[Rfam]
Shown here is a 91-nucleotide sequence from Manduca sexta, a member of the family "mir-282 microRNA precursor family".

RNA sequence: CUGGGAUGUUGACCUAGCCUCUCCUUGGCUUUGUCUGUGUCUUAGAGAUAUUUCAGACAUAGCCUGAUAGAGGUUACGUUUUGUCCCUUUU
Dot-bracket structure: ...........((.((((((......((((.(((((..................))))).))))......)))))).))............
A reference for the family is Li et al. (2009), "Direct sequencing and expression analysis of a large number of miRNAs in Aedes aegypti and a multi-species survey of novel mosquito miRNAs", BMC Genomics. The sequence is in the family's curated seed alignment. NCBI's taxonomy places the organism under Eukaryota, Protostomia, Panorpida, Bombycoidea, Manduca.